[Rfam]
RNA: Small nucleolar RNA SNORD45
Organism: Varanus komodoensis
RNA sequence: GGUCAGUGAUGAGUAACUGUUUUAUCUGAAUCUAAAGCUGAUGUGGUUUUAACACUUAGCUCUAGAAUUACUCUGAGACCUG
Numbered sequence: 001g002g003u004c005a006g007u008g009a010u011g012a013g014u015a016a017c018u019g020u021u022u023u024a025u026c027u028g029a030a031u032c033u034a035a036a037g038c039u040g041a042u043g044u045g046g047u048u049u050u051a052a053c054a055c056u057u058a059g060c061u062c063u064a065g066a067a068u069u070a071c072u073c074u075g076a077g078a079c080c081u082g
Base pairs, nucleotide, nucleotide: 001080002079003078004077